[Rfam]
RNA sequence: AUUCGAAGUAGAGGCGCGUUUAUUAAGAGUAUUUUUCAGGAACUUGAACAGAAGUGAUGACUGGAAUUGAAAGGGAUAAUCGCCGAAAUUGCUAAUUGCGUUUCCAAUUAGUGGUUGGGUCUUAACUUAAUAAGUUAAGGACUGUCGUGGUGUUUGCUACGGAGUGCUAUCAAGAUA
Numbered sequence: 001a002u003u004c005g006a007a008g009u010a011g012a013g014g015c016g017c018g019u020u021u022a023u024u025a026a027g028a029g030u031a032u033u034u035u036u037c038a039g040g041a042a043c044u045u046g047a048a049c050a051g052a053a054g055u056g057a058u059g060a061c062u063g064g065a066a067u068u069g070a071a072a073g074g075g076a077u078a079a080u081c082g083c084c085g086a087a088a089u090u091g092c093u094a095a096u097u098g099c100g101u102u103u104c105c106a107a108u109u110a111g112u113g114g115u116u117g118g119g120u121c122u123u124a125a126c127u128u129a130a131u132a133a134g135u136u137a138a139g140g141a142c143u144g145u146c147g148u149g150g151u152g153u154u155u156g157c158u159a160c161g162g163a164g165u166g167c168u169a170u171c172a173a174g175a176u177a
Stems, first nucleotide, its partner, number of pairs: 008170004016083003020079005034066006087116012117143002120140008145162007

Annotation
A member of the RNA family "Lysine riboswitch aptamer" from Lentilactobacillus curieae, 177 nucleotides long. The match comes from Rfam's covariance-model search (120 bits). Riboswitches are metabolite binding domains within certain messenger RNAs that serve as precision sensors for their corresponding targets. Allosteric rearrangement of mRNA structure is mediated by ligand binding, and this results in modulation of gene expression. This family includes riboswitches that sense lysine in a number of genes involved in lysine metabolism, including lysC.